[Rfam]
ctRNA: a 78-nucleotide RNA sequence from Corynebacterium glutamicum. The sequence is in the family's curated seed alignment. Lineage of the source: Bacteria > Bacillati > Actinomycetota > Mycobacteriales > Corynebacterium. The family's RNA type in Rfam is antisense RNA. Rolling circle replication plasmids contain a number of mechanisms to maintain a low copy number. On this family, see Venkova-Canova et al., J Bacteriol 2003: "Control of rep gene expression in plasmid pGA1 from Corynebacterium glutamicum".
RNA sequence: GCUUUCCCCCAGGUUGUGACUGGGUGAUAAGCGAACACCUUACGAGCUUGGACCCUCGUAGGGUGUUCUUUUUUGUGU
Dot-bracket structure: (((..(.(((((.......))))).)...))).(((((((((((((........)))))))))))))...........